Shown here is a 108-nucleotide RNA from Orenia marismortui, a member of the family "PyrR binding site". Lineage of the source: Bacteria > Bacillota > Halanaerobiales > Halobacteroidaceae > Orenia. Its family is annotated with pyrimidine nucleobase biosynthetic process and pyrimidine nucleobase transport in the Gene Ontology. The match comes from Rfam's covariance-model search (58 bits). A reference for the family is Bonner et al. (2001), "Molecular recognition of pyr mRNA by the Bacillus subtilis attenuation regulatory protein PyrR", Nucleic Acids Res. Pairs were carried over by alignment from the consensus structure, which is taken from published work. The family's RNA type in Rfam is cis-regulatory element.

[Rfam]
RNA sequence: AUUCCUUUUUAAACUAGUCCAGUGAGGCUAUAAGGGGAUUUGGGUAAAUAAUCAUGCAUAAUAAUACCUAAAAACUCCUUAGUCUUAUUGGCUAAGGAGUUUUUUAGG
Numbered sequence: 001a002u003u004c005c006u007u008u009u010u011a012a013a014c015u016a017g018u019c020c021a022g023u024g025a026g027g028c029u030a031u032a033a034g035g036g037g038a039u040u041u042g043g044g045u046a047a048a049u050a051a052u053c054a055u056g057c058a059u060a061a062u063a064a065u066a067c068c069u070a071a072a073a074a075c076u077c078c079u080u081a082g083u084c085u086u087a088u089u090g091g092c093u094a095a096g097g098a099g100u101u102u103u104u105u106a107g108g
Base pairs, nucleotide, nucleotide: 003038004037005036006035007034008033009032015030016029017028018027019026043068044067045066046065047062049060071103072102073101074100075099076098077097078096079095080094081093082092083091084090